[Rfam]
RNA sequence: UUUGAGAUUACAUGCUUCUUUAUAUCUCCAUAUGAAUUGCCUUGCUAUGGAAUGUAAGGAAGUGUGUGGUUUCAAG
Numbered sequence: 001u002u003u004g005a006g007a008u009u010a011c012a013u014g015c016u017u018c019u020u021u022a023u024a025u026c027u028c029c030a031u032a033u034g035a036a037u038u039g040c041c042u043u044g045c046u047a048u049g050g051a052a053u054g055u056a057a058g059g060a061a062g063u064g065u066g067u068g069g070u071u072u073c074a075a076g
Stems, first nucleotide, its partner, number of pairs: 007070019028050005
Dot-bracket structure: ......(((((((((((((((((((..(((((.............))))).)))))))))))))))))))......
Rfam assigns this 76-nucleotide sequence from Anolis carolinensis to the family "mir-1 microRNA precursor family". Rfam links the family to the GO terms miRNA-mediated post-transcriptional gene silencing and RISC complex. The literature on the family includes a 2001 paper in Cell by Ambros, "microRNAs: tiny regulators with great potential". The family has 137 seed sequences and 4,474 matches in Rfam 15.1. Rfam's curators put it in the seed alignment. The base pairs follow the family's consensus structure, which was predicted with RNAalifold.